mir-15 microRNA precursor family: an 82-nucleotide RNA sequence. Rfam's curators put it in the seed alignment. Pairs were carried over by alignment from the consensus structure, which was predicted with RNAalifold. For this family Rfam cites "Frequent deletions and down-regulation of micro- RNA genes miR15 and miR16 at 13q14 in chronic lymphocytic leukemia" (Calin et al., Proc Natl Acad Sci U S A, 2002). The family is grouped with related families in Rfam's "mir-15 clan". Rfam describes the family as follows. This family represents the related mir-15a and mir-15b sequences. In humans miR-15a and miR-16 are clustered within 0.5 kb at 13q14.

RNA sequence: CUUUGAGGAGAUGUAGCAGCACAUCAUGGUUUGUAGGGACAAGGAGAUACAGACCAUUCUGGGCUGCCUCAUUACCUCAAGG
Dot-bracket structure: ((((((......(..(((((.((..((((((((((............))))))))))..)).)))))..)......))))))